RNA sequence: AUAAAAAUAUACAGCAACACUCAUAUAAUCGCAGGGAUAUGGCCUGCAAGUUUCUACCGGAUUACCGUAAAUAAUCUGACUAUGAGUGAGUCAUAUAUACUU
Numbered sequence: 001a002u003a004a005a006a007a008u009a010u011a012c013a014g015c016a017a018c019a020c021u022c023a024u025a026u027a028a029u030c031g032c033a034g035g036g037a038u039a040u041g042g043c044c045u046g047c048a049a050g051u052u053u054c055u056a057c058c059g060g061a062u063u064a065c066c067g068u069a070a071a072u073a074a075u076c077u078g079a080c081u082a083u084g085a086g087u088g089a090g091u092c093a094u095a096u097a098u099a100c101u102u
Base pairs, nucleotide, nucleotide: 018088019087020086021085022084023083024082025081029049031047032046033045034044035043058078059077060076061075062074063073064072